[Rfam]
RNA: Enterococcus sRNA 68 (Lacto-3 RNA)
RNA sequence: UGCGAUGAGUCGAGAUAGACCAGGCAACAUUUUGUUGUUUCGCUGCGGCGACUAGUGGUCAGUGUCGAUAGCAGGGCACAUUUAGCUACCGGAUGUAGCGUGCUUGAAUGGUCUACAUUGUGGAGUGU
Numbered sequence: 001u002g003c004g005a006u007g008a009g010u011c012g013a014g015a016u017a018g019a020c021c022a023g024g025c026a027a028c029a030u031u032u033u034g035u036u037g038u039u040u041c042g043c044u045g046c047g048g049c050g051a052c053u054a055g056u057g058g059u060c061a062g063u064g065u066c067g068a069u070a071g072c073a074g075g076g077c078a079c080a081u082u083u084a085g086c087u088a089c090c091g092g093a094u095g096u097a098g099c100g101u102g103c104u105u106g107a108a109u110g111g112u113c114u115a116c117a118u119u120g121u122g123g124a125g126u127g128u
Stems, first nucleotide, its partner, number of pairs: 018060005023039006040051004075104005085099005115128005